The record is a 135-nucleotide RNA from Ciona savignyi, which matches "U4atac minor spliceosomal RNA" in Rfam.
From the family's description: U4atac is an essential component of the minor U12-type spliceosome complex which is required for removal of the rarer class of eukaryotic introns (AT-AC, U12-type).
The family has 61 seed sequences and 1,648 matches in Rfam 15.1.
RNA sequence: AUUGUCCUUAUCAAUGGGGAAGCGUUAUUACUCAAGGAACGAUAAGUGAGGGUAGUACUGCUAACACCAUUUGUGAUUUAUCACACUCCGCACCGCUGCUUCCUUGUGGAGUUGGUCGGUGCAAUUUCUGGAUGG
Numbered sequence: 001a002u003u004g005u006c007c008u009u010a011u012c013a014a015u016g017g018g019g020a021a022g023c024g025u026u027a028u029u030a031c032u033c034a035a036g037g038a039a040c041g042a043u044a045a046g047u048g049a050g051g052g053u054a055g056u057a058c059u060g061c062u063a064a065c066a067c068c069a070u071u072u073g074u075g076a077u078u079u080a081u082c083a084c085a086c087u088c089c090g091c092a093c094c095g096c097u098g099c100u101u102c103c104u105u106g107u108g109g110a111g112u113u114g115g116u117c118g119g120u121g122c123a124a125u126u127u128c129u130g131g132a133u134g135g
Stems, first nucleotide, its partner, number of pairs: 005020005021062004027056007039047002090122006096115002100111004